Annotation: Rfam assigns this 202-nucleotide RNA from Nocardioides psychrotolerans to the family "Actinobacteria sRNA Ms_IGR-5". The base pairs follow the family's consensus structure. Lineage of the source: Bacteria > Actinomycetota > Actinomycetes > Nocardioidaceae > Nocardioides. By type it is a small RNA.
RNA sequence: ACACGGGAAAAGGAGGUGGUCCAAAGAAUGAUUUCUUUGAGGACGCGUGAGGUGGCUGCCCGCUAGCAGCCAUGCACCAUGUCGGGCCGGAAUGCCCGACCUGCUGCUGGCGAAUUCCUAGCAGCUACCCGACCCGCAGGUGAUCCGGCUACACGUCCGCCGGAGCGGUCUCUCCGGAGGCCACGCCUGCGGGUCGUCCCAU
Numbered sequence: 001a002c003a004c005g006g007g008a009a010a011a012g013g014a015g016g017u018g019g020u021c022c023a024a025a026g027a028a029u030g031a032u033u034u035c036u037u038u039g040a041g042g043a044c045g046c047g048u049g050a051g052g053u054g055g056c057u058g059c060c061c062g063c064u065a066g067c068a069g070c071c072a073u074g075c076a077c078c079a080u081g082u083c084g085g086g087c088c089g090g091a092a093u094g095c096c097c098g099a100c101c102u103g104c105u106g107c108u109g110g111c112g113a114a115u116u117c118c119u120a121g122c123a124g125c126u127a128c129c130c131g132a133c134c135c136g137c138a139g140g141u142g143a144u145c146c147g148g149c150u151a152c153a154c155g156u157c158c159g160c161c162g163g164a165g166c167g168g169u170c171u172c173u174c175c176g177g178a179g180g181c182c183a184c185g186c187c188u189g190c191g192g193g194u195c196g197u198c199c200c201a202u
Stems, first nucleotide, its partner, number of pairs: 015060006061112007069104002075098001130196013144164006
Dot-bracket structure: ..............((((((..................................))))))(((((((.((....(......................)....)).))))))).................(((((((((((((.((((((.........))))))...................)))))))))))))......